The record is a 100-nucleotide RNA from Edolisoma coerulescens, which matches "Small nucleolar RNA SNORD103/SNORD85" in Rfam. A reference for the family is Vitali et al. (2003), "Identification of 13 novel human modification guide RNAs", Nucleic Acids Res. By type it is a C/D-box small nucleolar RNA.
[Rfam]
RNA sequence: ACUGGCAAUGAUGACAAACUUGCCCUCACUGAGAUCCCUCGGGUUGUUGUUGAGAAACUUUCUCUGUGCUCAACUUUCCUGAGCCUCUGGAGCAGCCAGG
Numbered sequence: 001a002c003u004g005g006c007a008a009u010g011a012u013g014a015c016a017a018a019c020u021u022g023c024c025c026u027c028a029c030u031g032a033g034a035u036c037c038c039u040c041g042g043g044u045u046g047u048u049g050u051u052g053a054g055a056a057a058c059u060u061u062c063u064c065u066g067u068g069c070u071c072a073a074c075u076u077u078c079c080u081g082a083g084c085c086u087c088u089g090g091a092g093c094a095g096c097c098a099g100g
Stems, first nucleotide, its partner, number of pairs: 002099005